[Rfam]
RNA sequence: AACGGUACGGGACAGUGCGCAGUAGUGCGAGCUGUCCGUCGUGGUAGAUCUAAAUAAACGGUGGGACGGCUGCAAAAGAGCCGCCCCACCGGGCAAAAUCAAGGUGUGCCGCGGAACCCGCUCCUCAGUCGGUCAACUUUGGAAGCUCGGGCAACGCAGGUGUUAAUGUCUAAAGGGCCGGGGCAACCGGCCC
Numbered sequence: 001a002a003c004g005g006u007a008c009g010g011g012a013c014a015g016u017g018c019g020c021a022g023u024a025g026u027g028c029g030a031g032c033u034g035u036c037c038g039u040c041g042u043g044g045u046a047g048a049u050c051u052a053a054a055u056a057a058a059c060g061g062u063g064g065g066a067c068g069g070c071u072g073c074a075a076a077a078g079a080g081c082c083g084c085c086c087c088a089c090c091g092g093g094c095a096a097a098a099u100c101a102a103g104g105u106g107u108g109c110c111g112c113g114g115a116a117c118c119c120g121c122u123c124c125u126c127a128g129u130c131g132g133u134c135a136a137c138u139u140u141g142g143a144a145g146c147u148c149g150g151g152c153a154a155c156g157c158a159g160g161u162g163u164u165a166a167u168g169u170c171u172a173a174a175g176g177g178c179c180g181g182g183g184c185a186a187c188c189g190g191c192c193c
Stems, first nucleotide, its partner, number of pairs: 001045001003043002006041001007039005016029005059091006067083005106163005111157003117151004122143002175193007